[Rfam]
RNA: Small nucleolar RNA SNORA44
RNA sequence: AGGCAUGCAAUCCUAAGGACCUGUGCUUGGUUGUAGUGCUGGUUCUCCAAGUGCAUGCUAGAAAAUUGGGUGGUCUUUGACUGUUGUGGCCUUUUGUGCCAUAAGCAGCCACUCAACUGUCCAACAGAA
Numbered sequence: 001a002g003g004c005a006u007g008c009a010a011u012c013c014u015a016a017g018g019a020c021c022u023g024u025g026c027u028u029g030g031u032u033g034u035a036g037u038g039c040u041g042g043u044u045c046u047c048c049a050a051g052u053g054c055a056u057g058c059u060a061g062a063a064a065a066u067u068g069g070g071u072g073g074u075c076u077u078u079g080a081c082u083g084u085u086g087u088g089g090c091c092u093u094u095u096g097u098g099c100c101a102u103a104a105g106c107a108g109c110c111a112c113u114c115a116a117c118u119g120u121c122c123a124a125c126a127g128a129a
Stems, first nucleotide, its partner, number of pairs: 014041002019037001021036005068122006083109002086102004